A member of the RNA family "Ribosomal protein L20 leader" from Enterococcus lacertideformus, 125 nucleotides long. The family's RNA type in Rfam is cis-regulatory leader. The match comes from Rfam's covariance-model search (74 bits).
RNA sequence: AAAUAAAAGUAGAAGCACCCGCUUCUCGCCUUAGUUGAUUUUGUCACUGGGCUAGAUAGUUUUCAUCUAUUAAUUAGGUGAAGUACGUGCGGGUUCUGUUAGAGAACUCGUUUUUUUUAUUGCCG
Number, nucleotide and partner (000 for none) at each position: 001a000002a000003a000004u000005a000006a000007a000008a000009g000010u000011a026012g025013a024014a023015g022016c021017a000018c000019c000020c000021g016022c015023u014024u013025c012026u011027c000028g052029c051030c050031u000032u000033a000034g047035u046036u000037g045038a044039u000040u000041u000042u000043g000044u038045c037046a035047c034048u000049g000050g030051g029052c028053u000054a000055g000056a000057u000058a000059g000060u000061u000062u000063u000064c000065a000066u000067c000068u000069a000070u000071u000072a000073a000074u000075u000076a000077g000078g000079u000080g000081a000082a000083g000084u000085a000086c000087g000088u000089g111090c110091g109092g108093g107094u106095u105096c104097u103098g000099u000100u000101a000102g000103a097104g096105a095106a094107c093108u092109c091110g090111u089112u000113u000114u000115u000116u000117u000118u000119a000120u000121u000122g000123c000124c000125g000